Description
This 161-nucleotide RNA belongs to the Rfam family "DUF2693 RNA". By type it is a small RNA. The family's consensus secondary structure is taken from published work.
[Rfam]
RNA sequence: GGUCUUUGACAUACUUGAUACAGGCGACAAUAAUAGAUAACUCACGUGGGUGCAAUGCCCACACAGUGAUUAACAAUACCGCUUGCAGGCUUAGACCUAUCGUGCUAAGCACUGAACGGCUCACGACCGACCCCUGGACAUCGCAACGUCCCUGCAAGCAC
Dot-bracket structure: .............................................(((((.......)))))..................((((((((((((((..........))))))......(((.......)))......((((........))))))))))))..
Numbered sequence: 001g002g003u004c005u006u007u008g009a010c011a012u013a014c015u016u017g018a019u020a021c022a023g024g025c026g027a028c029a030a031u032a033a034u035a036g037a038u039a040a041c042u043c044a045c046g047u048g049g050g051u052g053c054a055a056u057g058c059c060c061a062c063a064c065a066g067u068g069a070u071u072a073a074c075a076a077u078a079c080c081g082c083u084u085g086c087a088g089g090c091u092u093a094g095a096c097c098u099a100u101c102g103u104g105c106u107a108a109g110c111a112c113u114g115a116a117c118g119g120c121u122c123a124c125g126a127c128c129g130a131c132c133c134c135u136g137g138a139c140a141u142c143g144c145a146a147c148g149u150c151c152c153u154g155c156a157a158g159c160a161c
Stems, first nucleotide, its partner, number of pairs: 046062005081159008089110006117129003136151004